[Rfam]
RNA: mir-9412 microRNA precursor family
RNA sequence: GAUGAAUGCUAAAGACUGGAAGACAUGCGAAUUAAAAAUCAUGUCUUGAAGAAAACAGGAUGUU
Numbered sequence: 001g002a003u004g005a006a007u008g009c010u011a012a013a014g015a016c017u018g019g020a021a022g023a024c025a026u027g028c029g030a031a032u033u034a035a036a037a038a039u040c041a042u043g044u045c046u047u048g049a050a051g052a053a054a055a056c057a058g059g060a061u062g063u064u
Stems, first nucleotide, its partner, number of pairs: 007060001009058002016051002020047008